This 263-nucleotide part of an RNA from Fibrobacter succinogenes belongs to the Rfam family "Bacterial large subunit ribosomal RNA".

RNA sequence: CGAGACUUGAGGGAAGCUGUCCUUAGUACGAGAGGACCGGGACGGACGGACCUCCGGUGUACCGGCUGUCGCGCCAGCGGCAUUGCCGGGUAGCCAUGUCCGGAUUGGAGAAACGCUGAAGGCAUCUAAGCGUGAAGCCAUUCCCAAGAUCAGGUCUCGCGGGGGCAACCCCCUGAAGGGCCGUCGGAGACUACGACGUCGAUAGGCCGCAGGUGUAAGCGUGGCGACACGUUGAGCCGAGCGGUACUAAUAGCCCGUGAGAC
Numbered sequence: 001c002g003a004g005a006c007u008u009g010a011g012g013g014a015a016g017c018u019g020u021c022c023u024u025a026g027u028a029c030g031a032g033a034g035g036a037c038c039g040g041g042a043c044g045g046a047c048g049g050a051c052c053u054c055c056g057g058u059g060u061a062c063c064g065g066c067u068g069u070c071g072c073g074c075c076a077g078c079g080g081c082a083u084u085g086c087c088g089g090g091u092a093g094c095c096a097u098g099u100c101c102g103g104a105u106u107g108g109a110g111a112a113a114c115g116c117u118g119a120a121g122g123c124a125u126c127u128a129a130g131c132g133u134g135a136a137g138c139c140a141u142u143c144c145c146a147a148g149a150u151c152a153g154g155u156c157u158c159g160c161g162g163g164g165g166c167a168a169c170c171c172c173c174u175g176a177a178g179g180g181c182c183g184u185c186g187g188a189g190a191c192u193a194c195g196a197c198g199u200c201g202a203u204a205g206g207c208c209g210c211a212g213g214u215g216u217a218a219g220c221g222u223g224g225c226g227a228c229a230c231g232u233u234g235a236g237c238c239g240a241g242c243g244g245u246a247c248u249a250a251u252a253g254c255c256c257g258u259g260a261g262a263c
Base pairs, nucleotide, nucleotide: 001159002158003157004156005155006154007153008152011145012144013143014142017045018044019043020042021041022040023039047102048101049100050099051098056095057094062089063088064087065086066085067082068081069080070079071078072077106140107139108138113133114132115131116130117129162172163171164170174260178256179255180254181253182198183197184196185195186194203249204248205247206245207244208243209242210241212238213237219232220231221230222229223228
Rfam's curators put it in the seed alignment. The organism belongs to Fibrobacter succinogenes subsp. succinogenes, within Bacteria.